[Rfam]
RNA sequence: UGAGUUAAAUCUUCUCAAGGAACUCGGCAAGUUCGCCCCGUAUCUUCGGUAGAAGGGGUGCCUACUUCGGUAGGCCGCAGUGAAGAGACCCAAUCGACUGUUUAGCAAAAACAUAGCUCUCUGCAAAGUCGCAAGACGCAGUAUAGGGAGUGACACGUGACCAAUGCGGAAAGGUGAACACCUGAGGUGCAAGCUUCGGGUCCAAGCCCCCGUGAAUGUCGGCCGUAACUAUAACGGUCCUAAGGUAGCGAAAUUCCUUGUCGGGUAAGUUCCGACCUGCACGAAUCGUGUAACGAAUUGGGUGCUGUCUCGAGAAGAUGCUCA
Numbered sequence: 001u002g003a004g005u006u007a008a009a010u011c012u013u014c015u016c017a018a019g020g021a022a023c024u025c026g027g028c029a030a031g032u033u034c035g036c037c038c039c040g041u042a043u044c045u046u047c048g049g050u051a052g053a054a055g056g057g058g059u060g061c062c063u064a065c066u067u068c069g070g071u072a073g074g075c076c077g078c079a080g081u082g083a084a085g086a087g088a089c090c091c092a093a094u095c096g097a098c099u100g101u102u103u104a105g106c107a108a109a110a111a112c113a114u115a116g117c118u119c120u121c122u123g124c125a126a127a128g129u130c131g132c133a134a135g136a137c138g139c140a141g142u143a144u145a146g147g148g149a150g151u152g153a154c155a156c157g158u159g160a161c162c163a164a165u166g167c168g169g170a171a172a173g174g175u176g177a178a179c180a181c182c183u184g185a186g187g188u189g190c191a192a193g194c195u196u197c198g199g200g201u202c203c204a205a206g207c208c209c210c211c212g213u214g215a216a217u218g219u220c221g222g223c224c225g226u227a228a229c230u231a232u233a234a235c236g237g238u239c240c241u242a243a244g245g246u247a248g249c250g251a252a253a254u255u256c257c258u259u260g261u262c263g264g265g266u267a268a269g270u271u272c273c274g275a276c277c278u279g280c281a282c283g284a285a286u287c288g289u290g291u292a293a294c295g296a297a298u299u300g301g302g303u304g305c306u307g308u309c310u311c312g313a314g315a316a317g318a319u320g321c322u323c324a
Base pairs, nucleotide, nucleotide: 001324002323003322004321009319010318011317012316013315014314015313016312018310019309020308035059036058037057038056039055044049060075061074062073063072064071065070076080088303089302090301091300092299093298094297095295096294099113100112101111116151117150118149119148120147121146122145123144124141128137129136130135154290155289156288157287159220160219161218164217165216166213167212168211169210173208174207175206180201182199183198184197185196186195187194188193221239222238223237224236225235226234240244250277260276261275262274263273264272265271

The record is a 324-nucleotide part of an RNA from Opitutia bacterium SCGC AG-212-L18, which matches "Bacterial large subunit ribosomal RNA" in Rfam. Its family is annotated with ribosome and structural constituent of ribosome in the Gene Ontology. NCBI's taxonomy places the organism under Bacteria, Pseudomonadati, Verrucomicrobiota, Opitutia. The literature on the family includes a 2001 paper in Science by Yusupov et al., "Crystal structure of the ribosome at 5.5 A resolution".